[Rfam]
RNA sequence: GUUUCAGACGGACCCUUGGGCGGUUGAAGU
Numbered sequence: 001g002u003u004u005c006a007g008a009c010g011g012a013c014c015c016u017u018g019g020g021c022g023g024u025u026g027a028a029g030u
Stems, first nucleotide, its partner, number of pairs: 011025004

The record is a 30-nucleotide RNA from Haloarcula marismortui, which matches "CRISPR RNA direct repeat element" in Rfam. Pairs were carried over by alignment from the consensus structure, which was predicted with WAR. The source organism's lineage runs through Archaea, Methanobacteriati, Halobacteriales, Haloarculaceae and Haloarcula marismortui.